[Rfam]
RNA sequence: AGAGUUGCUUGUAUAGUGGCAAGCAGAAUAAUAAAAAGAAACACUAUAUUAAGA
Dot-bracket structure: .....((((((..[[[[..)))))).................]]]]........

Source information
This 54-nucleotide RNA sequence belongs to the Rfam family "6A RNA". Rfam's curators put it in the seed alignment. The family's RNA type in Rfam is small RNA.